A member of the RNA family "terC RNA" from Rhodobacter sp. CACIA14H1, 61 nucleotides long. Rfam 15.1 lists 1,112 matches to the family in 772 species. A search with the family's covariance model found it, with a score of 58 bits.
RNA sequence: CCUGGUGACCGGGCCCCUCUGGCGGACGUCCUGCGACGCGUCCGCGAUGUCGGCACCUUGU
Numbered sequence: 001c002c003u004g005g006u007g008a009c010c011g012g013g014c015c016c017c018u019c020u021g022g023c024g025g026a027c028g029u030c031c032u033g034c035g036a037c038g039c040g041u042c043c044g045c046g047a048u049g050u051c052g053g054c055a056c057c058u059u060g061u
Base pairs, nucleotide, nucleotide: 006055007054009053010052011051012050022045023044024043025042026041027040028039029038